Shown here is a 204-nucleotide sequence from Suricata suricatta, a member of the family "Small nucleolar RNA SNORA74". Lineage of the source: Eukaryota > Eumetazoa > Euteleostomi > Dipnotetrapodomorpha > Suricata. The match comes from Rfam's covariance-model search (130 bits). The literature on the family includes a 1997 paper in Genes Dev by Ganot et al., "The family of box ACA small nucleolar RNAs is defined by an evolutionarily conserved secondary structure and ubiquitous sequence elements essential for RNA accumulation". It is annotated as an H/ACA-box small nucleolar RNA. Its Rfam clan is "SNORA74 clan". From the family's description: U19 belongs to the H/ACA class of snoRNAs. snoRNAs bind a number of proteins (including dyskerin, Gar1p and Nop10p in the case of the H/ACA class) to form snoRNP complexes. Gene Ontology terms of the family: nucleolus and RNA processing.
RNA sequence: UCCAGCAGUAGUCAGCUGUCCGGAUAGAACCGUUCCUGUGAUGGUGUUACACUGCUGGGAGAGGAAAGUCCUGCCUUCUCCCUCCAGCUGCCUCCGUCACUGUUCUGGUGGCGACUGGCCCUGGUGUGAGGCAGGACUGUGCUUCCUUGAGAGUGUGCUGAGCGCUCACUUGGGCCGCUUAGUUCUAGUCUGGGAGCAGACACG
Numbered sequence: 001u002c003c004a005g006c007a008g009u010a011g012u013c014a015g016c017u018g019u020c021c022g023g024a025u026a027g028a029a030c031c032g033u034u035c036c037u038g039u040g041a042u043g044g045u046g047u048u049a050c051a052c053u054g055c056u057g058g059g060a061g062a063g064g065a066a067a068g069u070c071c072u073g074c075c076u077u078c079u080c081c082c083u084c085c086a087g088c089u090g091c092c093u094c095c096g097u098c099a100c101u102g103u104u105c106u107g108g109u110g111g112c113g114a115c116u117g118g119c120c121c122u123g124g125u126g127u128g129a130g131g132c133a134g135g136a137c138u139g140u141g142c143u144u145c146c147u148u149g150a151g152a153g154u155g156u157g158c159u160g161a162g163c164g165c166u167c168a169c170u171u172g173g174g175c176c177g178c179u180u181a182g183u184u185c186u187a188g189u190c191u192g193g194g195a196g197c198a199g200a201c202a203c204g
Stems, first nucleotide, its partner, number of pairs: 001059009011050002015045006021038001022036003068137009082126001084124002087119004093113001095111001098110004140198007155185001157183001159181006165174001